[Rfam]
RNA sequence: GCCCUCGUCAACGCUGCGUUUCCAUGCUCCAAACGGAGAGAUUUCUUGUUCUCGAACCUGAGAUCUCUCGCUCUCUUUGCAUGUGGGAAAUUCAGGGUAAUGCUCACUUCCUCCGGGAAGGCCUCGCCUCCCUCUCGUCCCUCUGGGCGAUGCAUAGGCCUGCCAGUGAUGGCCUGGCGUCAAUUGACGUCUGCAAUCGGCAUCAGAAAUCUCAGAGCCUGGGCGCGCCGGAACCCUCGGGGGAUGGAUGCGUCCCAGUGUCUCUAUGGGAGUCGUUGCUGAGCUUGUUGAGUAAAACUUGAGUGCGAUACGCGGCGUGUCGUCCUCCCUCGUCUGGGGGAGGCGGCAUAACUCAAUCCUGAUCAUUCUGACGAGGGC
Numbered sequence: 001g002c003c004c005u006c007g008u009c010a011a012c013g014c015u016g017c018g019u020u021u022c023c024a025u026g027c028u029c030c031a032a033a034c035g036g037a038g039a040g041a042u043u044u045c046u047u048g049u050u051c052u053c054g055a056a057c058c059u060g061a062g063a064u065c066u067c068u069c070g071c072u073c074u075c076u077u078u079g080c081a082u083g084u085g086g087g088a089a090a091u092u093c094a095g096g097g098u099a100a101u102g103c104u105c106a107c108u109u110c111c112u113c114c115g116g117g118a119a120g121g122c123c124u125c126g127c128c129u130c131c132c133u134c135u136c137g138u139c140c141c142u143c144u145g146g147g148c149g150a151u152g153c154a155u156a157g158g159c160c161u162g163c164c165a166g167u168g169a170u171g172g173c174c175u176g177g178c179g180u181c182a183a184u185u186g187a188c189g190u191c192u193g194c195a196a197u198c199g200g201c202a203u204c205a206g207a208a209a210u211c212u213c214a215g216a217g218c219c220u221g222g223g224c225g226c227g228c229c230g231g232a233a234c235c236c237u238c239g240g241g242g243g244a245u246g247g248a249u250g251c252g253u254c255c256c257a258g259u260g261u262c263u264c265u266a267u268g269g270g271a272g273u274c275g276u277u278g279c280u281g282a283g284c285u286u287g288u289u290g291a292g293u294a295a296a297a298c299u300u301g302a303g304u305g306c307g308a309u310a311c312g313c314g315g316c317g318u319g320u321c322g323u324c325c326u327c328c329c330u331c332g333u334c335u336g337g338g339g340g341a342g343g344c345g346g347c348a349u350a351a352c353u354c355a356a357u358c359c360u361g362a363u364c365a366u367u368c369u370g371a372c373g374a375g376g377g378c
Stems, first nucleotide, its partner, number of pairs: 001378004008371003013316007023083004036069010093361005102284004176191006193279005199274001214265003317349007
Annotation:
A member of the RNA family "Nuclear RNase P" from Emericellopsis atlantica, 378 nucleotides long. The organism belongs to Emericellopsis, within Eukaryota.